[Rfam]
RNA sequence: AAAUGAAAUUCGGGAGAAGCCGGCAGGAAUGCCGGUGCCGAAGGAGCAGCCGCCCCGGCGAACUCUCAGGCAAAAGGACCGUUUUUCACAA
Numbered sequence: 001a002a003a004u005g006a007a008a009u010u011c012g013g014g015a016g017a018a019g020c021c022g023g024c025a026g027g028a029a030u031g032c033c034g035g036u037g038c039c040g041a042a043g044g045a046g047c048a049g050c051c052g053c054c055c056c057g058g059c060g061a062a063c064u065c066u067c068a069g070g071c072a073a074a075a076g077g078a079c080c081g082u083u084u085u086u087c088a089c090a091a
Stems, first nucleotide, its partner, number of pairs: 006086003011081003020035004037071003040067002044065003049059002
Rfam assigns this 91-nucleotide sequence from Paracoccus seriniphilus to the family "Glycine riboswitch aptamer". Pairs were carried over by alignment from the consensus structure. The match comes from Rfam's covariance-model search (62 bits).